[Rfam]
RNA sequence: ACUGUCUGAAAAUAAUCCUUGGCUUUCUUUGUGGCCUUGGAUGAGGUAACUGUGCCCAUAGCAAAAAGGAACUUUAAGCUUAUUGCCUUAAGCAUAGUCUUUGGGCAAUAAAACCCAGGCUCCUACAUCU
Numbered sequence: 001a002c003u004g005u006c007u008g009a010a011a012a013u014a015a016u017c018c019u020u021g022g023c024u025u026u027c028u029u030u031g032u033g034g035c036c037u038u039g040g041a042u043g044a045g046g047u048a049a050c051u052g053u054g055c056c057c058a059u060a061g062c063a064a065a066a067a068g069g070a071a072c073u074u075u076a077a078g079c080u081u082a083u084u085g086c087c088u089u090a091a092g093c094a095u096a097g098u099c100u101u102u103g104g105g106c107a108a109u110a111a112a113a114c115c116c117a118g119g120c121u122c123c124u125a126c127a128u129c130u
Base pairs, nucleotide, nucleotide: 006052008050010047013044015042016041021036022035023034024033068123070121072119073118074117080111081110082109083108084107090100
RNA: Small nucleolar RNA ACA64